RNA sequence: CGGGUAGUAUCCCAGGAGGGAACUACACCUGAUCCUUUUUGACUCAAACAACUGAAGAGAGCGAUGGCCGCUUGGAGCCGUUCAGGACCGAGACGGUGGA
Numbered sequence: 001c002g003g004g005u006a007g008u009a010u011c012c013c014a015g016g017a018g019g020g021a022a023c024u025a026c027a028c029c030u031g032a033u034c035c036u037u038u039u040u041g042a043c044u045c046a047a048a049c050a051a052c053u054g055a056a057g058a059g060a061g062c063g064a065u066g067g068c069c070g071c072u073u074g075g076a077g078c079c080g081u082u083c084a085g086g087a088c089c090g091a092g093a094c095g096g097u098g099g100a
Stems, first nucleotide, its partner, number of pairs: 002029002004026005010021002068096003071092005078086002

Source information:
The family of this 100-nucleotide RNA from Desulforudis audaxviator is "pan motif". The organism belongs to Desulforudis audaxviator, within Bacteria. The family's consensus secondary structure is taken from published work.